A member of the RNA family "Group II catalytic intron D1-D4-6" from Candidatus Electrothrix aarhusensis, 224 nucleotides long. Pairs were carried over by alignment from the consensus structure. From the family's description: Group II introns are found in rRNA, tRNA and mRNA of organelles in fungi, plants and protists, and also in mRNA in bacteria. Gene Ontology term of the family: Group II intron splicing.
RNA sequence: AAAGAGCCCUACAUAAAAGGAGAAGCUGCUCCAUUAUGGCCCCGAGUCAUGCGUCGGUAUUCCGCGAGGAUGCGGCGAAGCGUUGACAGAGGAAGCGUAGGCCAGCCAUUGAGCUCCGAAAUCACCAUAAUCAGGGUGCCGACCGCGUGGUCUGGUUGGGAAGGCAACACGGGAAGCGGCAUAAAUCAGCUAGCUACUCCCCGGCCCUGCGGAGUCAGAGAACC
Numbered sequence: 001a002a003a004g005a006g007c008c009c010u011a012c013a014u015a016a017a018a019g020g021a022g023a024a025g026c027u028g029c030u031c032c033a034u035u036a037u038g039g040c041c042c043c044g045a046g047u048c049a050u051g052c053g054u055c056g057g058u059a060u061u062c063c064g065c066g067a068g069g070a071u072g073c074g075g076c077g078a079a080g081c082g083u084u085g086a087c088a089g090a091g092g093a094a095g096c097g098u099a100g101g102c103c104a105g106c107c108a109u110u111g112a113g114c115u116c117c118g119a120a121a122u123c124a125c126c127a128u129a130a131u132c133a134g135g136g137u138g139c140c141g142a143c144c145g146c147g148u149g150g151u152c153u154g155g156u157u158g159g160g161a162a163g164g165c166a167a168c169a170c171g172g173g174a175a176g177c178g179g180c181a182u183a184a185a186u187c188a189g190c191u192a193g194c195u196a197c198u199c200c201c202c203g204g205c206c207c208u209g210c211g212g213a214g215u216c217a218g219a220g221a222a223c224c
Stems, first nucleotide, its partner, number of pairs: 012038005019032004024191002027189001040092002043089001046087004050082002052077005061070003110218001111216001113215006132209006138165003143159003170203004175198002178195003